[Rfam]
RNA sequence: GAAGUUGACUAAGACAGUCGCUGCUAAUUUUUUAAAAAAUAUUUUAGGAGAGGAAAGUCCGGGCUCCUAGGGCUAAAGUGCCAGGUAACACCUGGGAGAUGUAAAUCUACGACUAGUGCCACAGAAAAUAUACCGCCUAAUUUUUUAUAUAUUGUAAUAAAAAAUAUAUAAAUUUUAAAAUUUUUUAUAUUUAAAUUAAGGUAAGGGUGAAAUGGUGUGGUAAAAGCACACCGCAUAAUUGGUAACAAUAUAUGGCAAGGUAAACUCCACUUGGAGCAAGGCCAAAUAAGAAUUUUAUAGCUCAAAGCCCUAGCUCAAAAAAUUCGGGUAGGCUGCUUGAAUUAGUAAGUGAUUACUAAUCUAGAUUAAUGACUGUUUAAUACAGAACCCGGCUUAUUAGUCAACUUCUAAC
Numbered sequence: 001g002a003a004g005u006u007g008a009c010u011a012a013g014a015c016a017g018u019c020g021c022u023g024c025u026a027a028u029u030u031u032u033u034a035a036a037a038a039a040u041a042u043u044u045u046a047g048g049a050g051a052g053g054a055a056a057g058u059c060c061g062g063g064c065u066c067c068u069a070g071g072g073c074u075a076a077a078g079u080g081c082c083a084g085g086u087a088a089c090a091c092c093u094g095g096g097a098g099a100u101g102u103a104a105a106u107c108u109a110c111g112a113c114u115a116g117u118g119c120c121a122c123a124g125a126a127a128a129u130a131u132a133c134c135g136c137c138u139a140a141u142u143u144u145u146u147a148u149a150u151a152u153u154g155u156a157a158u159a160a161a162a163a164a165u166a167u168a169u170a171a172a173u174u175u176u177a178a179a180a181u182u183u184u185u186u187a188u189a190u191u192u193a194a195a196u197u198a199a200g201g202u203a204a205g206g207g208u209g210a211a212a213u214g215g216u217g218u219g220g221u222a223a224a225a226g227c228a229c230a231c232c233g234c235a236u237a238a239u240u241g242g243u244a245a246c247a248a249u250a251u252a253u254g255g256c257a258a259g260g261u262a263a264a265c266u267c268c269a270c271u272u273g274g275a276g277c278a279a280g281g282c283c284a285a286a287u288a289a290g291a292a293u294u295u296u297a298u299a300g301c302u303c304a305a306a307g308c309c310c311u312a313g314c315u316c317a318a319a320a321a322a323u324u325c326g327g328g329u330a331g332g333c334u335g336c337u338u339g340a341a342u343u344a345g346u347a348a349g350u351g352a353u354u355a356c357u358a359a360u361c362u363a364g365a366u367u368a369a370u371g372a373c374u375g376u377u378u379a380a381u382a383c384a385g386a387a388c389c390c391g392g393c394u395u396a397u398u399a400g401u402c403a404a405c406u407u408c409u410a411a412c
Stems, first nucleotide, its partner, number of pairs: 001408010011397001013377007021050002024047004055395003059392005064276004071310002074307001076272005081095005096110001097108004111267002116265002118261003133206002135202004140197001142195002214232006233256001234254004239248003280334004290325006303313001305311001341360008
RNA: Bacterial RNase P class A
Organism: Buchnera aphidicola